[Rfam]
Description: The record is a 150-nucleotide sequence from Streptosporangium roseum, which matches "c-di-AMP riboswitch aptamer (ydaO/yuaA leader)" in Rfam. Gene Ontology terms of the family: regulation of gene expression and cyclic-di-AMP binding. This family represents a conserved RNA structure found upstream of the ydaO and yuaA genes in Bacillus subtilis and related genes in other bacteria.
RNA sequence: GGCCGGCCGACGUCGAAUCCCGGAGGCCGUCAGGGCCACGGGAACCGGGGACCCACUUCUUGGGGUGAAUCCGCCGCGAACCUGCGGCGGUAGGGCAACUCCACCGCCCGAAUCCGUCAGCUAACCCGGUAGACGAGAUGGAGAGGAGAU
Numbered sequence: 001g002g003c004c005g006g007c008c009g010a011c012g013u014c015g016a017a018u019c020c021c022g023g024a025g026g027c028c029g030u031c032a033g034g035g036c037c038a039c040g041g042g043a044a045c046c047g048g049g050g051a052c053c054c055a056c057u058u059c060u061u062g063g064g065g066u067g068a069a070u071c072c073g074c075c076g077c078g079a080a081c082c083u084g085c086g087g088c089g090g091u092a093g094g095g096c097a098a099c100u101c102c103a104c105c106g107c108c109c110g111a112a113u114c115c116g117u118c119a120g121c122u123a124a125c126c127c128g129g130u131a132g133a134c135g136a137g138a139u140g141g142a143g144a145g146g147a148g149a150u
Stems, first nucleotide, its partner, number of pairs: 011135004018043005044130006054062002063115003071090006093109004